RNA sequence: UACUGUCCGAGUCUUUACACGCUUUCUGGUUUUUGGGUUUCGCGAGUGCGAGAGGUUUGCGAGGUAAGCGCCGCGGCCUGCUUUUCCUCACCCGCCCUGCGUCUUGUCCACCGCUCCUCCUGACCCCGGGCCCCGUGUCCCCCGCAGAUCGGUACGCUCUGUGCGUUUCCUUGCUUUGGGCCUGUGCUUGGAUUGCGUGCGACGCCCCGCCUGCCUGCUGACCGACGGCGAAGGCAAGAUGAAGCUCUCCCUGGUGGCUGCGGUGCUGCUG
Numbered sequence: 001u002a003c004u005g006u007c008c009g010a011g012u013c014u015u016u017a018c019a020c021g022c023u024u025u026c027u028g029g030u031u032u033u034u035g036g037g038u039u040u041c042g043c044g045a046g047u048g049c050g051a052g053a054g055g056u057u058u059g060c061g062a063g064g065u066a067a068g069c070g071c072c073g074c075g076g077c078c079u080g081c082u083u084u085u086c087c088u089c090a091c092c093c094g095c096c097c098u099g100c101g102u103c104u105u106g107u108c109c110a111c112c113g114c115u116c117c118u119c120c121u122g123a124c125c126c127c128g129g130g131c132c133c134c135g136u137g138u139c140c141c142c143c144g145c146a147g148a149u150c151g152g153u154a155c156g157c158u159c160u161g162u163g164c165g166u167u168u169c170c171u172u173g174c175u176u177u178g179g180g181c182c183u184g185u186g187c188u189u190g191g192a193u194u195g196c197g198u199g200c201g202a203c204g205c206c207c208c209g210c211c212u213g214c215c216u217g218c219u220g221a222c223c224g225a226c227g228g229c230g231a232a233g234g235c236a237a238g239a240u241g242a243a244g245c246u247c248u249c250c251c252u253g254g255u256g257g258c259u260g261c262g263g264u265g266c267u268g269c270u271g
Base pairs, nucleotide, nucleotide: 004260005259007257008256009255016173017172032129033128035126036125037124038123068116070114071113073111075109076108177190178189179188180187181186

Rfam assigns this 271-nucleotide sequence from Pipistrellus kuhlii to the family "bip internal ribosome entry site (IRES)". Rfam describes the family as follows. This family represents the bip internal ribosome entry site (IRES). BiP protein expression has been found to be significantly enhanced by the heat shock response due to IRES-dependent translation. It is thought that this translational mechanism is essential for the survival of cells under stress. Its family is annotated with ribosome binding in the Gene Ontology. The literature on the family includes a 2002 paper in Biochem Biophys Res Commun by Kim and Jang, "Continuous heat shock enhances translational initiation directed by internal ribosomal entry site".